[Rfam]
RNA sequence: AACAGAGUAGCAGAAAUUGCGUUAAGUGCCAUAUCACGGGAUGUUGGGUAUGGACGAACACUUUUAGUGGCGGUAAUUCUGCGCGUCCGCUGUA
Numbered sequence: 001a002a003c004a005g006a007g008u009a010g011c012a013g014a015a016a017u018u019g020c021g022u023u024a025a026g027u028g029c030c031a032u033a034u035c036a037c038g039g040g041a042u043g044u045u046g047g048g049u050a051u052g053g054a055c056g057a058a059c060a061c062u063u064u065u066a067g068u069g070g071c072g073g074u075a076a077u078u079c080u081g082c083g084c085g086u087c088c089g090c091u092g093u094a
Stems, first nucleotide, its partner, number of pairs: 002093004010082005016077004020072003026055002029053007039088005059069004
RNA: THF (Tetrahydrofolate) riboswitch aptamer